[Rfam]
RNA sequence: ACAAAGGCUCUUUUAAGAGCCACCCACUUCAUUCCUUUAAAAGAGCU
Dot-bracket structure: .....((((((....))))))..........................